[Rfam]
Rfam assigns this 80-nucleotide RNA sequence from Alligator mississippiensis to the family "Mammalian CPEB3 ribozyme".
Rfam links the family to the GO term RNA nuclease activity.
Nucleotides: 080
Stems, first nucleotide, its partner, number of pairs: 013048001018047003024080007031043003052069004057064002
Number, partner (000 for none) and nucleotide at each position: 001000a002000g003000a004000g005000g006000u007000u008000g009000a010000c011000u012000g013048u014000u015000u016000g017000a018047g019046g020045c021000c022000a023000u024080a025079g026078c027077a028076g029075a030074a031043g032042c033041a034000c035000u036000u037000a038000u039000g040000g041033u042032g043031c044000a045020g046019c047018u048013g049000u050000g051000u052069c053068a054067g055066a056000g057064u058063c059000u060000a061000a062000u063058g064057a065000a066055u067054c068053u069052g070000u071000g072000a073000g074030u075029u076028c077027u078026g079025c080024u
The family's consensus secondary structure is taken from published work. Lineage of the source: Eukaryota > Chordata > Amniota > Archosauria > Alligator. From the family's description: The mammalian CPEB3 ribozyme is a self cleaving RNA located in the second intron of the CPEB3 gene which belongs to a family of genes regulating messenger RNA polyadenylation.